About this RNA
abiF RNA: a 37-nucleotide sequence. About the family: Actinobacteria, Bacteroidetes, Clostridia, Proteobacteria, one Clostridia phage.
RNA sequence: CCAGUCAAGCCUCUCUACGAUGCUCAAACCGACUGGU
Numbered sequence: 001c002c003a004g005u006c007a008a009g010c011c012u013c014u015c016u017a018c019g020a021u022g023c024u025c026a027a028a029c030c031g032a033c034u035g036g037u
Base pairs, nucleotide, nucleotide: 001036002035003034004033005032006031008024009023010022

It is annotated as a small RNA.